[Rfam]
RNA sequence: UGCGAAUAAGAAAACAAAACAUGAAAACUAUAACAAACAAUACUUGGUGGUGGAAUAAUUUACGUCAGUCGUCGUGAACUAAGCUCCUAUAGUAUUAUUUGAACUAUAAAUAUAAAAGGCUUGUC
Numbered sequence: 001u002g003c004g005a006a007u008a009a010g011a012a013a014a015c016a017a018a019a020c021a022u023g024a025a026a027a028c029u030a031u032a033a034c035a036a037a038c039a040a041u042a043c044u045u046g047g048u049g050g051u052g053g054a055a056u057a058a059u060u061u062a063c064g065u066c067a068g069u070c071g072u073c074g075u076g077a078a079c080u081a082a083g084c085u086c087c088u089a090u091a092g093u094a095u096u097a098u099u100u101g102a103a104c105u106a107u108a109a110a111u112a113u114a115a116a117a118g119g120c121u122u123g124u125c
Stems, first nucleotide, its partner, number of pairs: 036100002040095005047088001049087002052084001056081002059078003062072003
A member of the RNA family "Bacteroidete tryptophan peptide leader RNA" from Flavobacterium sp. A45, 125 nucleotides long. Rfam links the family to the GO terms regulation of gene expression and S-adenosylmethionine metabolic process. The family's consensus secondary structure is taken from published work.